The record is a 64-nucleotide RNA, which matches "Selenocysteine insertion sequence 1" in Rfam. The family's RNA type in Rfam is cis-regulatory element.

RNA sequence: GGUUCUUCCAUGAUGGUGUUUCCUCUAAAUUUGCACGGAGAAACACCUGAUUUCCAGGAAAAUC
Numbered sequence: 001g002g003u004u005c006u007u008c009c010a011u012g013a014u015g016g017u018g019u020u021u022c023c024u025c026u027a028a029a030u031u032u033g034c035a036c037g038g039a040g041a042a043a044c045a046c047c048u049g050a051u052u053u054c055c056a057g058g059a060a061a062a063u064c
Stems, first nucleotide, its partner, number of pairs: 001064004015047008024038001030037001